RNA: mir-55 microRNA precursor family
RNA sequence: AGGGGACUCGGCUGAAGCUUAUCGUGUUUAUCUGCAUUUUGUAUAGAUAUACCCGUAUAAGUUUCCGCUGAGCCCCC
Dot-bracket structure: ..(((.((((((.(((((.....(.((.((.(((.........))).)).)).)......))))).)))))))))..